L19-Flavobacteria ribosomal protein leader: a 29-nucleotide sequence from Scedosporium apiospermum. The family's RNA type in Rfam is cis-regulatory leader. The base pairs follow the family's consensus structure, which is taken from published work.
[Rfam]
RNA sequence: CAACCUCUGGCGGAAUCACGCGAAUGUCG
Numbered sequence: 001c002a003a004c005c006u007c008u009g010g011c012g013g014a015a016u017c018a019c020g021c022g023a024a025u026g027u028c029g
Stems, first nucleotide, its partner, number of pairs: 001029001003027002008024001010021003